[Rfam]
Nucleotides: 153
Base pairs, nucleotide, nucleotide: 020052021051022050023049024048025047026046061092062091063090064089065088070081071080072079073078097143098142100140101139102138103137111128112127113126114125115124116123117122
Number, partner (000 for none) and nucleotide at each position: 001000u002000a003000c004000a005000a006000a007000a008000a009000a010000g011000a012000a013000g014000c015000g016000c017000c018000a019000g020052a021051a022050c023049u024048c025047a026046a027000g028000u029000g030000a031000c032000g033000g034000u035000c036000c037000a038000c039000a040000c041000a042000g043000a044000a045000a046026u047025u048024g049023a050022g051021u052020u053000g054000a055000c056000g057000a058000g059000g060000a061092c062091a063090g064089g065088g066000a067000g068000u069000a070081u071080c072079g073078a074000a075000a076000a077000u078073u079072c080071g081070g082000c083000g084000g085000a086000u087000g088065c089064c090063c091062u092061g093000a094000a095000g096000g097143u098142a099000u100140g101139a102138u103137g104000g105000a106000u107000a108000a109000a110000u111128c112127u113126g114125a115124g116123a117122a118000g119000u120000g121000a122117u123116u124115u125114u126113c127112a128111g129000c130000a131000c132000a133000a134000a135000g136000a137103c138102a139101u140100c141000c142098u143097a144000c145000a146000a147000a148000u149000a150000u151000u152000u153000u
A member of the RNA family "glmS glucosamine-6-phosphate activated ribozyme aptamer" from Acetobacterium bakii, 153 nucleotides long. The source organism's lineage runs through Bacteria, Bacillati, Eubacteriales, Eubacteriaceae and Acetobacterium. On this family, see Hampel and Tinsley, Biochemistry 2006: "Evidence for preorganization of the glmS ribozyme ligand binding pocket".